[Rfam]
RNA sequence: CCCCCGUUGGGAAGCGAAGACCCUGUGGAGCUUUACUGCAGCCUGCCGUUGCUCCACAGCUGGGGGUGCGCAGGGUAGGCGGGAGGCUUCGAAGCCCCGUCUCCGGGCGGGGUGGAGCCGUCGAUGAGACACCGCCCACCUCCAGCUGUGGAGCUAACUCCCGCUGGGAGGACAUCGGUAGGUGGGCAGUUUGGGUGGGGCGCCACUCCCCCGAAAAGGUAUCGGGGGAGCCCAAAGGUCGGCUCAGGCGGGUCAGAAAUCCGCCGUAGAGUGCAAGGGCAAAAGCCGGCCUGACGUGAACCCGCAAAAUAAGGGUUCACGAGCCGAAAGGCGGGCCUAGCGAACCACCCUGGCCUUUUGGUGAGGCCGGGUGACGACAGAAAAGCUACCCCAGGGAUAACAGAGUUGUCCCCGGCGAGAGUACAUAUCGACCCGGGGGCUUGCUACCUCGAUGUCGGCUCUCCCCAUCCUGGCCGUGCAGCAGCGGCCAAGGGUGAGGUUGUUCGCCUAUUAAAGGGGAUCGUGAGCUGGGUUUAGACCGUCGUGAGACAGGUCGGUUGCUAUCUAACGGGGGUGUCA
Numbered sequence: 001c002c003c004c005c006g007u008u009g010g011g012a013a014g015c016g017a018a019g020a021c022c023c024u025g026u027g028g029a030g031c032u033u034u035a036c037u038g039c040a041g042c043c044u045g046c047c048g049u050u051g052c053u054c055c056a057c058a059g060c061u062g063g064g065g066g067u068g069c070g071c072a073g074g075g076u077a078g079g080c081g082g083g084a085g086g087c088u089u090c091g092a093a094g095c096c097c098c099g100u101c102u103c104c105g106g107g108c109g110g111g112g113u114g115g116a117g118c119c120g121u122c123g124a125u126g127a128g129a130c131a132c133c134g135c136c137c138a139c140c141u142c143c144a145g146c147u148g149u150g151g152a153g154c155u156a157a158c159u160c161c162c163g164c165u166g167g168g169a170g171g172a173c174a175u176c177g178g179u180a181g182g183u184g185g186g187c188a189g190u191u192u193g194g195g196u197g198g199g200g201c202g203c204c205a206c207u208c209c210c211c212c213g214a215a216a217a218g219g220u221a222u223c224g225g226g227g228g229a230g231c232c233c234a235a236a237g238g239u240c241g242g243c244u245c246a247g248g249c250g251g252g253u254c255a256g257a258a259a260u261c262c263g264c265c266g267u268a269g270a271g272u273g274c275a276a277g278g279g280c281a282a283a284a285g286c287c288g289g290c291c292u293g294a295c296g297u298g299a300a301c302c303c304g305c306a307a308a309a310u311a312a313g314g315g316u317u318c319a320c321g322a323g324c325c326g327a328a329a330g331g332c333g334g335g336c337c338u339a340g341c342g343a344a345c346c347a348c349c350c351u352g353g354c355c356u357u358u359u360g361g362u363g364a365g366g367c368c369g370g371g372u373g374a375c376g377a378c379a380g381a382a383a384a385g386c387u388a389c390c391c392c393a394g395g396g397a398u399a400a401c402a403g404a405g406u407u408g409u410c411c412c413c414g415g416c417g418a419g420a421g422u423a424c425a426u427a428u429c430g431a432c433c434c435g436g437g438g439g440c441u442u443g444c445u446a447c448c449u450c451g452a453u454g455u456c457g458g459c460u461c462u463c464c465c466c467a468u469c470c471u472g473g474c475c476g477u478g479c480a481g482c483a484g485c486g487g488c489c490a491a492g493g494g495u496g497a498g499g500u501u502g503u504u505c506g507c508c509u510a511u512u513a514a515a516g517g518g519g520a521u522c523g524u525g526a527g528c529u530g531g532g533u534u535u536a537g538a539c540c541g542u543c544g545u546g547a548g549a550c551a552g553g554u555c556g557g558u559u560g561c562u563a564u565c566u567a568a569c570g571g572g573g574g575u576g577u578c579a
Base pairs, nucleotide, nucleotide: 001574002573003572004571005570006569007568008567010566011565012564014561015560022395023394024393025392027391028390029387030386031385032384033383035190036189037188038187042182043181044180045179046178047177048176051154052153053152054151055150056149057148058147059146060145061144062143063142064141065140066139067138068137078136079135080134081133082132085119086118087117097110098109099108100107101106158170159169160168161167193206194204195203196202207229208228209227210226211225212224232335233334238290239289240288241287242286243285244270245269247265248264249263250262251261252260271280272279295321296320297319298318299317300316301315302314303313323332325330346373347372348371349370350369352368353367354366355365356364404445405444406443408442409439410438411437412436413435414434415433419429420428456531457529458528459527460526461523462520463519464518465517466516469494470493473488474487475486476485477484497509498508499507500506537555538554539553540552541550542549543548
This 579-nucleotide part of an RNA from Archaeoglobus fulgidus belongs to the Rfam family "Archaeal large subunit ribosomal RNA". Its family is annotated with ribosome and structural constituent of ribosome in the Gene Ontology.